[Rfam]
RNA: MIR5565 microRNA precursor family
RNA sequence: GUAGUCAGAUUCGUAUCAAUCUACAUGCGUUGGGGUGAGUUGAAGUGUAACUUAAACUAAAUUUCACCCCAAUCCACCUCAACACAUGUGGAUUUAGAUGAAUACGACA
Dot-bracket structure: ...(((..((((((.(.((((((((((.((((..(((.((((..(((.................)))..)))).)))..)))).)))))))))).).))))))..))).